[Rfam]
5' ureB small RNA: a 295-nucleotide RNA sequence from Streptomyces corynorhini. Rfam links the family to the GO term negative regulation of gene expression. Lineage of the source: Bacteria > Actinomycetes > Kitasatosporales > Streptomycetaceae > Streptomyces. It scores 84 bits against the family's covariance model. The family's consensus secondary structure was predicted with mfold.
RNA sequence: UGGUCGACGACGGUCGGGGAGAUGAAGUGGACGUGCGCGUCGACGGCUCCGGCGGUGACGAUCUUCCCGUUGCCCGAGAUGACCUCGGUCUCGGGGCCGAUCACGAGAUCGGGGUGGACCCCGUCCAUGGUGUCGGGGUUGCCCGCCUUGCCGAUUCCGGUGAUCCGGCCGUCCCUGAUGCCGAUGUCGGCCUUGACGAUGCCCCAGUGGUCGAUGAUCAGGGCGCCGGUCACGACGGUGUCGGGCGCGCCUUCGGCCCGGGUGGUACGGGACUGGCCCAUCGACUCGCGGAUCA
Dot-bracket structure: (((.((.(((..(((((((.((.....(((..(..((......)).).)))...(.(.......).)..)).)).(..(.(......((..(..(((....((...(((.((.......)).)))..))..)))...)..))...).)..).....)))))......((((..((((((.((.......((((((........(........).....))))))...((....(...(((.......))).)....))..))..)).))))..))))........)))))..)))